[Rfam]
RNA sequence: GGGAAUAGAUAGGAGCUGGUGUUCCUACAGGUCUUCAAAACCUAGUUGUGGUACUAAUACUAUCAUUGGUGGGUUCGAUUCCCACAUAUUCCC
Numbered sequence: 001g002g003g004a005a006u007a008g009a010u011a012g013g014a015g016c017u018g019g020u021g022u023u024c025c026u027a028c029a030g031g032u033c034u035u036c037a038a039a040a041c042c043u044a045g046u047u048g049u050g051g052u053a054c055u056a057a058u059a060c061u062a063u064c065a066u067u068g069g070u071g072g073g074u075u076c077g078a079u080u081c082c083c084a085c086a087u088a089u090u091c092c093c
Stems, first nucleotide, its partner, number of pairs: 001093007008085001011026006027046002029043004048066005070084004
Dot-bracket structure: ((((((((..((((((....))))))((((((.......)))).)).(((((.........)))))...((((.......))))).)))))))
A member of the RNA family "Selenocysteine transfer RNA" from Clostridium tarantellae, 93 nucleotides long. NCBI's taxonomy places the organism under Bacteria, Bacillati, Bacillota, Clostridiaceae, Clostridium. On this family, see Lowe and Eddy, Nucleic Acids Res 1997: "tRNAscan-SE: a program for improved detection of transfer RNA genes in genomic sequence".